About this RNA:
The record is a 144-nucleotide sequence, which matches "TPP riboswitch aptamer (THI element)" in Rfam. The base pairs follow the family's consensus structure, which is taken from published work.
[Rfam]
RNA sequence: UCAUGCAUGAGCCGGUGCCCAUUCUUCUCCCAUCAGCAUGGUCAGUUCAAACUGGUCGUGUUGAUGAUAGGGGGAUGUGGCUGAGAUUAUACGGCAAAACUUGAUCUGGAUAAUACCAGCGAAAGGAUCAUGUCAUCUCCCCUA
Numbered sequence: 001u002c003a004u005g006c007a008u009g010a011g012c013c014g015g016u017g018c019c020c021a022u023u024c025u026u027c028u029c030c031c032a033u034c035a036g037c038a039u040g041g042u043c044a045g046u047u048c049a050a051a052c053u054g055g056u057c058g059u060g061u062u063g064a065u066g067a068u069a070g071g072g073g074g075a076u077g078u079g080g081c082u083g084a085g086a087u088u089a090u091a092c093g094g095c096a097a098a099a100c101u102u103g104a105u106c107u108g109g110a111u112a113a114u115a116c117c118a119g120c121g122a123a124a125g126g127a128u129c130a131u132g133u134c135a136u137c138u139c140c141c142c143u144a
Stems, first nucleotide, its partner, number of pairs: 006132005011095004016089001017081003100125003106119004
The sequence is in the family's curated seed alignment. Rfam links the family to the GO term thiamine pyrophosphate binding.